[Rfam]
The family of this 75-nucleotide RNA from Streptomyces qinzhouensis is "ASpks TB sRNA". A search with the family's covariance model found it, with a score of 76 bits.
RNA sequence: UUUGACCGAGCCCAGCCACAGCGGCCGGCCGGCCGGGCGCCCCCGGCCGUAGGUCGCCAGCAGCGCCUGUGCCUC
Dot-bracket structure: ..............(((.....)))......((....((...(.(.(.(....).).).)...))...)).....
Numbered sequence: 001u002u003u004g005a006c007c008g009a010g011c012c013c014a015g016c017c018a019c020a021g022c023g024g025c026c027g028g029c030c031g032g033c034c035g036g037g038c039g040c041c042c043c044c045g046g047c048c049g050u051a052g053g054u055c056g057c058c059a060g061c062a063g064c065g066c067c068u069g070u071g072c073c074u075c
Stems, first nucleotide, its partner, number of pairs: 015025003032070002038065002043060001045058001047056001049054001
The family's RNA type in Rfam is antisense RNA.